Notes:
The family of this 75-nucleotide RNA from Branchiostoma floridae is "Small nucleolar RNA SNORD24". Rfam links the family to the GO terms RNA processing and nucleolus. The source organism's lineage runs through Eukaryota, Opisthokonta, Chordata, Branchiostomatidae and Branchiostoma.
[Rfam]
RNA sequence: UGCCAGUGAUGAUCCCAAUAUUUGCUAGUUGAUGCGUCAAUGAUAUCAACCACAACCACCAAGAUCGCUGAGGCA
Numbered sequence: 001u002g003c004c005a006g007u008g009a010u011g012a013u014c015c016c017a018a019u020a021u022u023u024g025c026u027a028g029u030u031g032a033u034g035c036g037u038c039a040a041u042g043a044u045a046u047c048a049a050c051c052a053c054a055a056c057c058a059c060c061a062a063g064a065u066c067g068c069u070g071a072g073g074c075a
Stems, first nucleotide, its partner, number of pairs: 001075004